This 32-nucleotide RNA belongs to the Rfam family "S4-Flavobacteria ribosomal protein leader". It is annotated as a cis-regulatory leader.
RNA sequence: GAUAGAUGAAGGACAGACCUUAAUUCAUCAUC
Numbered sequence: 001g002a003u004a005g006a007u008g009a010a011g012g013a014c015a016g017a018c019c020u021u022a023a024u025u026c027a028u029c030a031u032c
Base pairs, nucleotide, nucleotide: 001032002031003030005029006028007027008026009021010020011019012018